[Rfam]
RNA sequence: UGGGCAGUAUCUCCUUAGAACUGCACCUUUAAGGAAAUGACAAUAAAAAUUAAAAAGGUUUCUGCCUAGAUCCGUAUGACGGACCGGGACAGAGGG
Numbered sequence: 001u002g003g004g005c006a007g008u009a010u011c012u013c014c015u016u017a018g019a020a021c022u023g024c025a026c027c028u029u030u031a032a033g034g035a036a037a038u039g040a041c042a043a044u045a046a047a048a049a050u051u052a053a054a055a056a057g058g059u060u061u062c063u064g065c066c067u068a069g070a071u072c073c074g075u076a077u078g079a080c081g082g083a084c085c086g087g088g089a090c091a092g093a094g095g096g
Stems, first nucleotide, its partner, number of pairs: 002027002004024005010019002062092003065088003069084001071083003
RNA: pan motif
Organism: Neobacillus cucumis